Source information:
This 78-nucleotide RNA sequence from Alligator sinensis belongs to the Rfam family "Mammalian CPEB3 ribozyme". Rfam's curators write: The mammalian CPEB3 ribozyme is a self cleaving RNA located in the second intron of the CPEB3 gene which belongs to a family of genes regulating messenger RNA polyadenylation.
[Rfam]
RNA sequence: AAGUCACAAGUUUGAGACUGUAGCAGAAGUGCUCAUGGUGCAGCCAUGCCAGAUUCCAAUGAAUCUGUGAAUUCUGCU
Numbered sequence: 001a002a003g004u005c006a007c008a009a010g011u012u013u014g015a016g017a018c019u020g021u022a023g024c025a026g027a028a029g030u031g032c033u034c035a036u037g038g039u040g041c042a043g044c045c046a047u048g049c050c051a052g053a054u055u056c057c058a059a060u061g062a063a064u065c066u067g068u069g070a071a072u073u074c075u076g077c078u
Base pairs, nucleotide, nucleotide: 013046014045018043019042022078023077024076025075026074027073028072029041030040031039050067051066052065053064054063055062056061